RNA sequence: GAGUUAGCAGUGAUUAUAAAAGUAAUUCUUCGUUCUGACUUGCUUAGUUUGGGCAUGAUAAAUCUCUUAUUAUAACUAUAGAAUCUGAACUAC
Numbered sequence: 001g002a003g004u005u006a007g008c009a010g011u012g013a014u015u016a017u018a019a020a021a022g023u024a025a026u027u028c029u030u031c032g033u034u035c036u037g038a039c040u041u042g043c044u045u046a047g048u049u050u051g052g053g054c055a056u057g058a059u060a061a062a063u064c065u066c067u068u069a070u071u072a073u074a075a076c077u078a079u080a081g082a083a084u085c086u087g088a089a090c091u092a093c
Base pairs, nucleotide, nucleotide: 003093004092006091007090
Shown here is a 93-nucleotide RNA sequence from Theobroma cacao, a member of the family "Small nucleolar RNA snoR8a".
The base pairs follow the family's consensus structure, which was predicted with WAR.
A reference for the family is Brown et al. (2001), "Multiple snoRNA gene clusters from Arabidopsis", RNA.
Taxonomically the source falls in Theobroma (Eukaryota, Tracheophyta, Malvales, Malvaceae).
The family's RNA type in Rfam is C/D-box small nucleolar RNA.